RNA sequence: AGGAGGAACAACCCGAGUGGCGGCUGCCAGCUCUGGAGGCCUGGAUUCAGCUCCCGCAGUAACUACGGAGCUCUCAGUCUGCCAAGGCCUGGAUGCUCCGGGGGCGG
Numbered sequence: 001a002g003g004a005g006g007a008a009c010a011a012c013c014c015g016a017g018u019g020g021c022g023g024c025u026g027c028c029a030g031c032u033c034u035g036g037a038g039g040c041c042u043g044g045a046u047u048c049a050g051c052u053c054c055c056g057c058a059g060u061a062a063c064u065a066c067g068g069a070g071c072u073c074u075c076a077g078u079c080u081g082c083c084a085a086g087g088c089c090u091g092g093a094u095g096c097u098c099c100g101g102g103g104g105c106g107g
Stems, first nucleotide, its partner, number of pairs: 002099004007094001009091002012087002019079003023075001026073001029072007037064001041059003
The family of this 107-nucleotide sequence from Vulpes vulpes is "mir-8834 microRNA precursor family".
NCBI's taxonomy places the organism under Eukaryota, Vertebrata, Teleostomi, Eutheria, Vulpes.
The family has 2 seed sequences and 13,926 matches in Rfam 15.1.